RNA sequence: UCGAGCCACUAGGGGAGCAACAUGCUGAGACAAGGGCUUGCGCCUUGGACCCUUAGCACCUGAACUGGGUAAUACCAGCGUAGGAAAGUGGCAAGCGCAGCGG
Numbered sequence: 001u002c003g004a005g006c007c008a009c010u011a012g013g014g015g016a017g018c019a020a021c022a023u024g025c026u027g028a029g030a031c032a033a034g035g036g037c038u039u040g041c042g043c044c045u046u047g048g049a050c051c052c053u054u055a056g057c058a059c060c061u062g063a064a065c066u067g068g069g070u071a072a073u074a075c076c077a078g079c080g081u082a083g084g085a086a087a088g089u090g091g092c093a094a095g096c097g098c099a100g101c102g103g
Stems, first nucleotide, its partner, number of pairs: 006091005011053004017025003032046004059084004065078004
Description: TPP riboswitch aptamer (THI element): a 103-nucleotide RNA sequence from Paenalicyclobacillus mengziensis. It scores 71 bits against the family's covariance model. About the family: Vitamin B(1) in its active form thiamin pyrophosphate (TPP) is an essential coenzyme that is synthesised by coupling of pyrimidine and thiazole moieties in bacteria. The base pairs follow the family's consensus structure, which is taken from published work.